[Rfam]
Rfam assigns this 69-nucleotide RNA to the family "Fluoride riboswitch aptamer (crcB RNA motif)". The family has 289 seed sequences and 2,293 matches in Rfam 15.1. The family's consensus secondary structure is taken from published work. It scores 39 bits against the family's covariance model.
RNA sequence: AUUGUGAAGGGCAAUGGAGUCUGCCUGAUACAACCGCCGAAUUCGUCGGGUGAUGACUCCUUUUCAAAG
Numbered sequence: 001a002u003u004g005u006g007a008a009g010g011g012c013a014a015u016g017g018a019g020u021c022u023g024c025c026u027g028a029u030a031c032a033a034c035c036g037c038c039g040a041a042u043u044c045g046u047c048g049g050g051u052g053a054u055g056a057c058u059c060c061u062u063u064u065c066a067a068a069g
Stems, first nucleotide, its partner, number of pairs: 010025004016060006037049003